[Rfam]
Shown here is a 68-nucleotide sequence from Drosophila simulans, a member of the family "mir-318 microRNA precursor family". Rfam links the family to the GO terms miRNA-mediated post-transcriptional gene silencing and RISC complex.
RNA sequence: UUUAUGGGAUACACACAGUUCAGUUUUGUCACACUUUAAGCAUCACUGGGCUUUGUUUAUCUCAUGAG
Numbered sequence: 001u002u003u004a005u006g007g008g009a010u011a012c013a014c015a016c017a018g019u020u021c022a023g024u025u026u027u028g029u030c031a032c033a034c035u036u037u038a039a040g041c042a043u044c045a046c047u048g049g050g051c052u053u054u055g056u057u058u059a060u061c062u063c064a065u066g067a068g
Stems, first nucleotide, its partner, number of pairs: 002067010013056002017052008027042003